[Rfam]
A member of the RNA family "Glycine riboswitch aptamer" from Brevundimonas goettingensis, 89 nucleotides long. A search with the family's covariance model found it, with a score of 51 bits.

Nucleotides: 089
Base pairs, nucleotide, nucleotide: 001089002088003087004086005085012025013024014023015022027077028076029075030073031072034071035070036069040064041063
Number, partner (000 for none) and nucleotide at each position: 001089c002088g003087c004086u005085g006000g007000a008000a009000a010000g011000u012025c013024g014023g015022u016000c017000c018000u019000u020000g021000g022015a023014c024013c025012g026000c027077g028076c029075c030073g031072a032000c033000g034071g035070a036069g037000c038000a039000a040064u041063g042000c043000c044000g045000c046000c047000c048000c049000u050000c051000u052000u053000u054000u055000a056000a057000g058000g059000g060000c061000g062000u063041c064040g065000g066000a067000a068000u069036c070035u071034c072031u073030c074000a075029g076028g077027c078000u079000u080000c081000a082000g083000g084000a085005c086004a087003g088002c089001g